[Rfam]
RNA: A. fumigatus sRNA Afu_309
Organism: Microdochium trichocladiopsis
RNA sequence: UUCUUUACACAAACCACGAACCUGUGCCCGGCCUCCUUUGCUUAGCAGUCAGAGUCGAGACCGAGGCAGUUCGAGCUAUUCAUGGAAGCCAUCCUCUUACAACGAUGAUUAUCCUAUCGACGGGUUCCAGACAGAACCGGCCCAGUCGCGAAGCCGAGAUCGCCCUAGGGCUGAGCUUGGUGCGUAGCGACUGGUGUUCGGAGGCGAUAUAUUCCAAAACCGUUUGCCCAGGCCAUUGGUCUAUGAGGCGGGGGUAAACCAUACGUCUACAGAC
Numbered sequence: 001u002u003c004u005u006u007a008c009a010c011a012a013a014c015c016a017c018g019a020a021c022c023u024g025u026g027c028c029c030g031g032c033c034u035c036c037u038u039u040g041c042u043u044a045g046c047a048g049u050c051a052g053a054g055u056c057g058a059g060a061c062c063g064a065g066g067c068a069g070u071u072c073g074a075g076c077u078a079u080u081c082a083u084g085g086a087a088g089c090c091a092u093c094c095u096c097u098u099a100c101a102a103c104g105a106u107g108a109u110u111a112u113c114c115u116a117u118c119g120a121c122g123g124g125u126u127c128c129a130g131a132c133a134g135a136a137c138c139g140g141c142c143c144a145g146u147c148g149c150g151a152a153g154c155c156g157a158g159a160u161c162g163c164c165c166u167a168g169g170g171c172u173g174a175g176c177u178u179g180g181u182g183c184g185u186a187g188c189g190a191c192u193g194g195u196g197u198u199c200g201g202a203g204g205c206g207a208u209a210u211a212u213u214c215c216a217a218a219a220c221c222g223u224u225u226g227c228c229c230a231g232g233c234c235a236u237u238g239g240u241c242u243a244u245g246a247g248g249c250g251g252g253g254g255u256a257a258a259c260c261a262u263a264c265g266u267c268u269a270c271a272g273a274c
Stems, first nucleotide, its partner, number of pairs: 018127008026067003029063003033059003036054005041048002076119001078117002088109001090107001136198001138196001142194006153181006160174002162171002203267004208263003219255003223251001226249003231241004